[Rfam]
This 127-nucleotide RNA sequence from Python bivittatus belongs to the Rfam family "Small Cajal body specific RNA 4".
From the family's description: scaRNAs are a specific class of small nuclear RNAs which localise to the Cajal bodies and guide the modification of RNA polymerase II transcribed spliceosomal RNAs U1, U2, U4, U5 and U12. ACA26 belongs to the H/ACA box class of guide RNAs as it has the predicted hairpin-hinge-hairpin-tail structure, conserved H/ACA-box motifs and is found associated with GAR1.
Rfam links the family to the GO terms RNA processing, nucleolus and Cajal body.
The family's consensus secondary structure was predicted with RNAfold.
It is annotated as a small Cajal body RNA.
The source organism's lineage runs through Eukaryota, Eumetazoa, Sarcopterygii, Tetrapoda and Python.
The family is grouped with related families in Rfam's "SCARNA4 clan".
RNA sequence: GCUAGAGGAUUAAGAAGGCCUGGCCUGUUGAGCAGGGCUAGGCUGAUACCAUCCUCUUAAAGAAAUGCAAUGGAGAGAGGGGUCCAGCUUACAGAGAGCAGAGACCUCACUGCGCCAUUCAACAAUA
Number, nucleotide and partner (000 for none) at each position: 001g000002c000003u059004a057005g056006a055007g054008g053009a052010u000011u000012a000013a000014g000015a000016a000017g044018g043019c042020c000021u040022g039023g038024c037025c036026u035027g000028u000029u000030g000031a000032g000033c000034a000035g026036g025037g024038c023039u022040a021041g000042g019043c018044u017045g000046a000047u000048a000049c000050c000051a000052u009053c008054c007055u006056c005057u004058u000059a003060a000061a000062g000063a000064a000065a000066u000067g120068c000069a118070a000071u000072g000073g000074a000075g000076a000077g000078a111079g110080g108081g107082g106083u000084c000085c103086a000087g000088c000089u000090u100091a000092c098093a000094g000095a000096g000097a000098g092099c000100a090101g000102a000103g085104a000105c000106c082107u081108c080109a000110c079111u078112g000113c000114g000115c000116c000117a000118u069119u000120c067121a000122a000123c000124a000125a000126u000127a000